[Rfam]
RNA sequence: GGAUGGCUGGCUGAGUGGUCGAAAGCGGCGGUCUUGAAAACCGUUGAACCGAGAGGUUCCUGGGGUUCGAAUCCCUAGCCAUCCG
Numbered sequence: 001g002g003a004u005g006g007c008u009g010g011c012u013g014a015g016u017g018g019u020c021g022a023a024a025g026c027g028g029c030g031g032u033c034u035u036g037a038a039a040a041c042c043g044u045u046g047a048a049c050c051g052a053g054a055g056g057u058u059c060c061u062g063g064g065g066u067u068c069g070a071a072u073c074c075c076u077a078g079c080c081a082u083c084c085g
Base pairs, nucleotide, nucleotide: 001084002083003082004081005080006079007078010026011025012024028044029043030042031041032040061077062076063075064074065073
A member of the RNA family "tRNA" from Terasakiella brassicae, 85 nucleotides long. Rfam's curators write: Transfer RNA (tRNA) molecules are approximately 80 nucleotides in length. The family's RNA type in Rfam is transfer RNA.